[Rfam]
RNA sequence: AAAGGAGUGAUAACCAAUUUCUUGUUCUAUCAAGAGUAUUGGUAUUGUUCUUUUAUUU
Numbered sequence: 001a002a003a004g005g006a007g008u009g010a011u012a013a014c015c016a017a018u019u020u021c022u023u024g025u026u027c028u029a030u031c032a033a034g035a036g037u038a039u040u041g042g043u044a045u046u047g048u049u050c051u052u053u054u055a056u057u058u
Base pairs, nucleotide, nucleotide: 001054002053003052004051005050006049007048008047009046010045011044012043014041019036020035021034022033023032024031
RNA: Plastid-psbA-3 3UTR RNA
Organism: Hibiscus syriacus